[Rfam]
RNA sequence: UGUGGCCCGUGCAUCGUGGCCUCUGCCCGAACCGGCCCUGGCGUACUUCCCCAACGCCAGGUCCGUAUCGGACAGGGACCUCGAUGCAGGGGCGGCGGCCA
Numbered sequence: 001u002g003u004g005g006c007c008c009g010u011g012c013a014u015c016g017u018g019g020c021c022u023c024u025g026c027c028c029g030a031a032c033c034g035g036c037c038c039u040g041g042c043g044u045a046c047u048u049c050c051c052c053a054a055c056g057c058c059a060g061g062u063c064c065g066u067a068u069c070g071g072a073c074a075g076g077g078a079c080c081u082c083g084a085u086g087c088a089g090g091g092g093c094g095g096c097g098g099c100c101a
Base pairs, nucleotide, nucleotide: 010088011087012086013085014084015083016082018080019079021077022076023075024074025073027071028070029069030068033065034064035063037061038060039059040058041057042056043055044054
Rfam assigns this 101-nucleotide RNA sequence from Mycolicibacterium chitae to the family "mraW RNA". It is annotated as a cis-regulatory element.